[Rfam]
RNA sequence: GAUUGGCUUUAGGGGUAUUCCGGAAGGAAUUGAGAUAGACCCUUUGUACCUGAUUCGGUUAAUACCGGCGUAGGAAAAAGCAACUUUUCAAAG
Numbered sequence: 001g002a003u004u005g006g007c008u009u010u011a012g013g014g015g016u017a018u019u020c021c022g023g024a025a026g027g028a029a030u031u032g033a034g035a036u037a038g039a040c041c042c043u044u045u046g047u048a049c050c051u052g053a054u055u056c057g058g059u060u061a062a063u064a065c066c067g068g069c070g071u072a073g074g075a076a077a078a079a080g081c082a083a084c085u086u087u088u089c090a091a092a093g
Base pairs, nucleotide, nucleotide: 006081007080008079009078010077011043012042013041014040016037017030018029019028020027021026049074050073051072052071055068056067057066058065